[Rfam]
RNA: U12 minor spliceosomal RNA
Organism: Tripterygium wilfordii
RNA sequence: UUGCCUUAAACUAAUGAGUAAGGAAAACAAAGUGAGUGGUGAGAACUGCUCGCCGCGCCAAUCCAUGUGCGCAUGAAUUUGUGGAGGGGUUAUAGGUUGGCCGAGUGUUGAUGCUGCUUACUUUGCAGAACUCACUCGAGCGGGCCUCCC
Numbered sequence: 001u002u003g004c005c006u007u008a009a010a011c012u013a014a015u016g017a018g019u020a021a022g023g024a025a026a027a028c029a030a031a032g033u034g035a036g037u038g039g040u041g042a043g044a045a046c047u048g049c050u051c052g053c054c055g056c057g058c059c060a061a062u063c064c065a066u067g068u069g070c071g072c073a074u075g076a077a078u079u080u081g082u083g084g085a086g087g088g089g090u091u092a093u094a095g096g097u098u099g100g101c102c103g104a105g106u107g108u109u110g111a112u113g114c115u116g117c118u119u120a121c122u123u124u125g126c127a128g129a130a131c132u133c134a135c136u137c138g139a140g141c142g143g144g145c146c147u148c149c150c
Stems, first nucleotide, its partner, number of pairs: 004023005032053008054071005088150002094147005100141001102138002105135003114128004